[Rfam]
RNA sequence: UCAUGCUUCAGCCACCCCCGUCGCGAGGCGGGUUCGGAAAGCCACGGGUCUUGAGCCUAACAAGAUGGCCGGGUUGCCCUC
Numbered sequence: 001u002c003a004u005g006c007u008u009c010a011g012c013c014a015c016c017c018c019c020g021u022c023g024c025g026a027g028g029c030g031g032g033u034u035c036g037g038a039a040a041g042c043c044a045c046g047g048g049u050c051u052u053g054a055g056c057c058u059a060a061c062a063a064g065a066u067g068g069c070c071g072g073g074u075u076g077c078c079c080u081c
Stems, first nucleotide, its partner, number of pairs: 012037002017032006040075004045071003048066006

A member of the RNA family "c-di-GMP-I riboswitch aptamer" from Methylomonas sp. LL1, 81 nucleotides long. Rfam's curators write: GEMM was predicted in a large-scale screen for bacterial structured RNA regulatory elements. The organism belongs to Methylomonas, within Bacteria.